[Rfam]
Rfam assigns this 200-nucleotide sequence to the family "IS605-orfB-I RNA". Rfam's curators put it in the seed alignment.
RNA sequence: UCUGGAUAAACUUGUAUCCAUCCAAGAGAAUGGAGUGAGUCACUUUACGGAAUUAGAUUAAGUAACACAUCUAAGGAUUGCCAAAGGCUUACAUACAAGCGAAAUCCUUUGAUGAUAGGAUAACCAUAUGUCCUUUAAUACAAUAUGUAUUAUAAAAAUAAUCUUGAACAACUUUGAUUAAGUUUUCAAGUUACGGUUUA
Numbered sequence: 001u002c003u004g005g006a007u008a009a010a011c012u013u014g015u016a017u018c019c020a021u022c023c024a025a026g027a028g029a030a031u032g033g034a035g036u037g038a039g040u041c042a043c044u045u046u047a048c049g050g051a052a053u054u055a056g057a058u059u060a061a062g063u064a065a066c067a068c069a070u071c072u073a074a075g076g077a078u079u080g081c082c083a084a085a086g087g088c089u090u091a092c093a094u095a096c097a098a099g100c101g102a103a104a105u106c107c108u109u110u111g112a113u114g115a116u117a118g119g120a121u122a123a124c125c126a127u128a129u130g131u132c133c134u135u136u137a138a139u140a141c142a143a144u145a146u147g148u149a150u151u152a153u154a155a156a157a158a159u160a161a162u163c164u165u166g167a168a169c170a171a172c173u174u175u176g177a178u179u180a181a182g183u184u185u186u187c188a189a190g191u192u193a194c195g196g197u198u199u200a
Stems, first nucleotide, its partner, number of pairs: 001051004006046001008044001010040006017034005022028001068114004073109007087100002090097001117134005123197003127193002129158001136152005163190006170183001
Dot-bracket structure: ((((.(.(.((((((.((((((.....).)))))))))))...).).))))................((((.(((((((.......((.(......).))..))))))).))))..(((((.[[[.[[[))))).(((((.......))))).....]....((((((.(............).)))))).]].]]]...